This 145-nucleotide RNA from Anisodus acutangulus belongs to the Rfam family "MIR7993 microRNA precursor family".

[Rfam]
RNA sequence: UUAGGUUGACUACAUAAAAUAUGUCACCUCCUUUAAUUAUACGCAUCAAGUUCAAGUAGAAAUUAAGUACCUAGAAUUUUACGCCUUAUUGAGGUGGAUGUGUAUAAUUAAAGGAGAUGCCAUAUUUUAUGUGAUUAACUUAACU
Numbered sequence: 001u002u003a004g005g006u007u008g009a010c011u012a013c014a015u016a017a018a019a020u021a022u023g024u025c026a027c028c029u030c031c032u033u034u035a036a037u038u039a040u041a042c043g044c045a046u047c048a049a050g051u052u053c054a055a056g057u058a059g060a061a062a063u064u065a066a067g068u069a070c071c072u073a074g075a076a077u078u079u080u081a082c083g084c085c086u087u088a089u090u091g092a093g094g095u096g097g098a099u100g101u102g103u104a105u106a107a108u109u110a111a112a113g114g115a116g117a118u119g120c121c122a123u124a125u126u127u128u129a130u131g132u133g134a135u136u137a138a139c140u141u142a143a144c145u
Stems, first nucleotide, its partner, number of pairs: 001143009011133013025119001028116020049095001051093005
Rfam 15.1 lists 59 matches to the family in 6 species. Its family is annotated with miRNA-mediated post-transcriptional gene silencing and RISC complex in the Gene Ontology.